[Rfam]
RNA: int-alpA RNA
RNA sequence: GGGCUCUCUAGGGAUGCGCGCCCCGAAAAGCGGGUGACCCUCGCCCGCCUGGGAGUCCGGCUCUUUUUGAACG
Numbered sequence: 001g002g003g004c005u006c007u008c009u010a011g012g013g014a015u016g017c018g019c020g021c022c023c024c025g026a027a028a029a030g031c032g033g034g035u036g037a038c039c040c041u042c043g044c045c046c047g048c049c050u051g052g053g054a055g056u057c058c059g060g061c062u063c064u065u066u067u068u069g070a071a072c073g
Stems, first nucleotide, its partner, number of pairs: 001058008011024003030048005038073001041070003